[Rfam]
RNA sequence: UGUUAGUGCAGUGAAUAAGGCAGUAAGCAAGCGCCUCAAGCCCUUGCCGAUGAGUCGUCAUUGACCUAGUGUGACUCUGCCGCUAUAGAUUACGCGCACUAACA
Numbered sequence: 001u002g003u004u005a006g007u008g009c010a011g012u013g014a015a016u017a018a019g020g021c022a023g024u025a026a027g028c029a030a031g032c033g034c035c036u037c038a039a040g041c042c043c044u045u046g047c048c049g050a051u052g053a054g055u056c057g058u059c060a061u062u063g064a065c066c067u068a069g070u071g072u073g074a075c076u077c078u079g080c081c082g083c084u085a086u087a088g089a090u091u092a093c094g095c096g097c098a099c100u101a102a103c104a
Stems, first nucleotide, its partner, number of pairs: 001104009019081004027047005052077006059071005